[Rfam]
RNA sequence: ACAGUUGGUCGGUUUGUCGCUGGCACUUCGGUGCGAGAGGAAAGUCUGAGCAACACAGAGCAUCCCCCUUCCUAACGGGAAGUAGCUUGUGAAGGUUAAGUAACGCAGAAGAAAAUAACCGCCUCUUCGGAGGUAAGGGUGAGAAGGUAAGGUAAGAGCUUACCAGCUGUAUGGCGACAUACGGGCUGUGCGUCUGGGGAGUUGUAAGGUCAUGUAUACCGACAUAAAAAGAGCUGCUCGCUCAACGUCGGAGGGUAGACUGCUCGAGCAUAAUGGUGACAUUAUGCCUAGAUAAAUGACAGACACUUUAUAUUUAUAUAAGGUACAGAACUCGGCUUAUAGACCAACUGUUUUU
Numbered sequence: 001a002c003a004g005u006u007g008g009u010c011g012g013u014u015u016g017u018c019g020c021u022g023g024c025a026c027u028u029c030g031g032u033g034c035g036a037g038a039g040g041a042a043a044g045u046c047u048g049a050g051c052a053a054c055a056c057a058g059a060g061c062a063u064c065c066c067c068c069u070u071c072c073u074a075a076c077g078g079g080a081a082g083u084a085g086c087u088u089g090u091g092a093a094g095g096u097u098a099a100g101u102a103a104c105g106c107a108g109a110a111g112a113a114a115a116u117a118a119c120c121g122c123c124u125c126u127u128c129g130g131a132g133g134u135a136a137g138g139g140u141g142a143g144a145a146g147g148u149a150a151g152g153u154a155a156g157a158g159c160u161u162a163c164c165a166g167c168u169g170u171a172u173g174g175c176g177a178c179a180u181a182c183g184g185g186c187u188g189u190g191c192g193u194c195u196g197g198g199g200a201g202u203u204g205u206a207a208g209g210u211c212a213u214g215u216a217u218a219c220c221g222a223c224a225u226a227a228a229a230a231g232a233g234c235u236g237c238u239c240g241c242u243c244a245a246c247g248u249c250g251g252a253g254g255g256u257a258g259a260c261u262g263c264u265c266g267a268g269c270a271u272a273a274u275g276g277u278g279a280c281a282u283u284a285u286g287c288c289u290a291g292a293u294a295a296a297u298g299a300c301a302g303a304c305a306c307u308u309u310a311u312a313u314u315u316a317u318a319u320a321a322g323g324u325a326c327a328g329a330a331c332u333c334g335g336c337u338u339a340u341a342g343a344c345c346a347a348c349u350g351u352u353u354u355u
Stems, first nucleotide, its partner, number of pairs: 001351010011340001012304007020037002023034004042338003046335005051204004058239004063200005068082005083098001085096004099195002103193005119138002121134005146164006166186001167184007208261004219251005231243004268287008
Shown here is a 355-nucleotide RNA sequence from Bacteroides coprosuis, a member of the family "Bacterial RNase P class A". The match comes from Rfam's covariance-model search (236 bits). It is annotated as a ribozyme. NCBI's taxonomy places the organism under Bacteria, Bacteroidota, Bacteroidales, Bacteroidaceae, Bacteroides coprosuis. The base pairs follow the family's consensus structure, which is taken from published work.